[Rfam]
RNA sequence: UAUGACUUUAGGGUCAAAAGGUAUCAUCGAUGCACGCUUGCAUGCAAUUCGAUGUAUACCUUAGUGACCCGCACUACACCGAGAAAGUAACAGUUUGCUGCAGGGACGCAGAAAAUUAGCGGACUUCGAGGUGUAGUCAGAUUAUGGAAAUGCGUAGCAUGGAGCAAUCUGAUUAAUCAUA
Numbered sequence: 001u002a003u004g005a006c007u008u009u010a011g012g013g014u015c016a017a018a019a020g021g022u023a024u025c026a027u028c029g030a031u032g033c034a035c036g037c038u039u040g041c042a043u044g045c046a047a048u049u050c051g052a053u054g055u056a057u058a059c060c061u062u063a064g065u066g067a068c069c070c071g072c073a074c075u076a077c078a079c080c081g082a083g084a085a086a087g088u089a090a091c092a093g094u095u096u097g098c099u100g101c102a103g104g105g106a107c108g109c110a111g112a113a114a115a116u117u118a119g120c121g122g123a124c125u126u127c128g129a130g131g132u133g134u135a136g137u138c139a140g141a142u143u144a145u146g147g148a149a150a151u152g153c154g155u156a157g158c159a160u161g162g163a164g165c166a167a168u169c170u171g172a173u174u175a176a177u178c179a180u181a
Base pairs, nucleotide, nucleotide: 001181002180003179004178005177007176013068014067015066016065019061020060021059022058023057024056025054026053027052028051029049030048031047032045033044034043036041073137074136075135076134077133078132079131080130083127084126085125091119092117093116094115095114096113139170140169141168142167143166145164150160151159152158153157